[Rfam]
RNA sequence: AACCGAAGAAGACACACGGCAAUUUCUGACACCUCAUACUACAGCUGCUUCCACAGCCUGAUUCUCACGCCGAACUGAGGCUC
Numbered sequence: 001a002a003c004c005g006a007a008g009a010a011g012a013c014a015c016a017c018g019g020c021a022a023u024u025u026c027u028g029a030c031a032c033c034u035c036a037u038a039c040u041a042c043a044g045c046u047g048c049u050u051c052c053a054c055a056g057c058c059u060g061a062u063u064c065u066c067a068c069g070c071c072g073a074a075c076u077g078a079g080g081c082u083c
Stems, first nucleotide, its partner, number of pairs: 001082001003080002044057004